Rfam assigns this 143-nucleotide RNA from Rhizobium album to the family "Alphaproteobacterial sRNA ar7". A reference for the family is del Val et al. (2012), "A survey of sRNA families in alpha-proteobacteria", RNA Biol. The match comes from Rfam's covariance-model search (112 bits).
Nucleotides: 143
Stems, first nucleotide, its partner, number of pairs: 025057005035049003061096011105139001108137010
Number, partner (000 for none) and nucleotide at each position: 001000u002000a003000c004000c005000g006000g007000c008000g009000a010000u011000u012000g013000a014000u015000c016000a017000c018000g019000c020000c021000g022000a023000g024000g025057u026056c027055u028054g029053a030000c031000a032000g033000c034000c035049g036048g037047c038000u039000c040000g041000u042000c043000c044000c045000c046000c047037g048036c049035c050000g051000c052000a053029u054028c055027a056026g057025a058000c059000c060000u061096g062095g063094a064093c065092a066091a067090a068089g069088g070087c071086c072000u073000a074000u075000c076000c077000c078000c079000c080000u081000c082000u083000c084000c085000g086071g087070g088069c089068c090067u091066u092065u093064g094063u095062c096061c097000u098000c099000a100000g101000u102000u103000c104000a105139a106000g107000a108137c109136c110135g111134c112133c113132a114131u115130g116129g117128c118000a119000g120000a121000c122000c123000u124000c125000c126000a127000g128117g129116c130115c131114a132113u133112g134111g135110c136109g137108g138000u139105u140000u141000u142000u143000c